PyrR binding site: a 120-nucleotide sequence from Peribacillus loiseleuriae. By type it is a cis-regulatory element. This family represents the PyrR binding site and terminator structure. The organism belongs to Peribacillus, within Bacteria.
RNA sequence: AUUUCCUUUUAAUACGGUCCAGAGAGGCCGAAAAGGGUGGCUUGAUAGUCUUAUAUUUUUAAGUCUAACUACGUACAUUCAUGCCCUUUUGUCCUCUGUGACGGAAGGGCAUUUAUUUUU
Numbered sequence: 001a002u003u004u005c006c007u008u009u010u011a012a013u014a015c016g017g018u019c020c021a022g023a024g025a026g027g028c029c030g031a032a033a034a035g036g037g038u039g040g041c042u043u044g045a046u047a048g049u050c051u052u053a054u055a056u057u058u059u060u061a062a063g064u065c066u067a068a069c070u071a072c073g074u075a076c077a078u079u080c081a082u083g084c085c086c087u088u089u090u091g092u093c094c095u096c097u098g099u100g101a102c103g104g105a106a107g108g109g110c111a112u113u114u115a116u117u118u119u120u
Base pairs, nucleotide, nucleotide: 004037005036006035007034008033009032015030016029017028018027019026042071044069046067047066048065050063051062052061053060078115081112082111083110084109085108086107087106088105089104090103091102092101093100